This 76-nucleotide sequence from Aquimarina mytili belongs to the Rfam family "Flavo-1 RNA". The source organism's lineage runs through Bacteria, Pseudomonadati, Flavobacteriia, Flavobacteriaceae and Aquimarina. It is annotated as a small RNA. The match comes from Rfam's covariance-model search (46 bits). The base pairs follow the family's consensus structure, which is taken from published work.
RNA sequence: AAUGCGUUAGGGAUAGUAGCGGCAUCCUUUUGGAAGGGCAACCUGCCAAAAGAUAUAGCAGAUAGCCCGGCCAUCA
Number, nucleotide and partner (000 for none) at each position: 001a000002a000003u000004g000005c000006g000007u000008u000009a000010g068011g067012g066013a000014u064015a063016g000017u000018a000019g059020c058021g000022g000023c000024a054025u053026c052027c000028u000029u000030u049031u048032g047033g046034a000035a044036g043037g042038g000039c000040a000041a000042c037043c036044u035045g000046c033047c032048a031049a030050a000051a000052g026053a025054u024055a000056u000057a000058g020059c019060a000061g000062a000063u015064a014065g000066c012067c011068c010069g000070g000071c000072c000073a000074u000075c000076a000